[Rfam]
RNA sequence: AACAGCAACCUUCCACUCGGAUCGUUCGGCACGUACCUGCCGAUGAAAGGAAACAUAA
Numbered sequence: 001a002a003c004a005g006c007a008a009c010c011u012u013c014c015a016c017u018c019g020g021a022u023c024g025u026u027c028g029g030c031a032c033g034u035a036c037c038u039g040c041c042g043a044u045g046a047a048a049g050g051a052a053a054c055a056u057a058a
Base pairs, nucleotide, nucleotide: 009050010049011048012047014045015044026043027042028041029040030039031038
RNA: msiK RNA